About this RNA:
Shown here is a 117-nucleotide RNA sequence from Skermanella stibiiresistens, a member of the family "ALIL pseudoknot". Rfam links the family to the GO term positive regulation of translational frameshifting. It is annotated as a cis-regulatory element.
RNA sequence: GGCGUAUUUCGUCCAGGCGGAACUCGACCGCCCGUUCAGGAAAUGAUCGCUUUAAUCGACGAGCAUCGCGCCGUCCACGGGGCCGGGCCGAUCCGCGAGGUUCCGCCGAUGACCCCG
Numbered sequence: 001g002g003c004g005u006a007u008u009u010c011g012u013c014c015a016g017g018c019g020g021a022a023c024u025c026g027a028c029c030g031c032c033c034g035u036u037c038a039g040g041a042a043a044u045g046a047u048c049g050c051u052u053u054a055a056u057c058g059a060c061g062a063g064c065a066u067c068g069c070g071c072c073g074u075c076c077a078c079g080g081g082g083c084c085g086g087g088c089c090g091a092u093c094c095g096c097g098a099g100g101u102u103c104c105g106c107c108g109a110u111g112a113c114c115c116c117g
Stems, first nucleotide, its partner, number of pairs: 016032005078117005092109002095106003